RNA sequence: GGAAAAGGAAGAUCGACUAAAACCGCCGCUUUGCGCGGCAACGUCGACCUACCCGCAGCGCUGA
Numbered sequence: 001g002g003a004a005a006a007g008g009a010a011g012a013u014c015g016a017c018u019a020a021a022a023c024c025g026c027c028g029c030u031u032u033g034c035g036c037g038g039c040a041a042c043g044u045c046g047a048c049c050u051a052c053c054c055g056c057a058g059c060g061c062u063g064a
Base pairs, nucleotide, nucleotide: 011049013047014046015045016044017043025039026038027037028036029035056063